[Rfam]
RNA sequence: CCAGAAAAAGGCAAACCUGUCGCGAGGCAGGGGCGCAAAGCCACGGAGCUCUCGAAGCUAGCCGGGCUGCCUGGG
Numbered sequence: 001c002c003a004g005a006a007a008a009a010g011g012c013a014a015a016c017c018u019g020u021c022g023c024g025a026g027g028c029a030g031g032g033g034c035g036c037a038a039a040g041c042c043a044c045g046g047a048g049c050u051c052u053c054g055a056a057g058c059u060a061g062c063c064g065g066g067c068u069g070c071c072u073g074g075g
Base pairs, nucleotide, nucleotide: 001075003072004071011036012035016031017030018029019028020027021026034061039068040067041066042065044064045063046062047059048058049057
c-di-GMP-I-GGC riboswitch aptamer: a 75-nucleotide RNA from Thermobaculum terrenum. It scores 74 bits against the family's covariance model. NCBI's taxonomy places the organism under Bacteria, Chloroflexia, Thermobaculaceae (SeqCode), Thermobaculum (SeqCode), Thermobaculum terrenum. Its Rfam clan is "c-di-GMP_I riboswitch clan".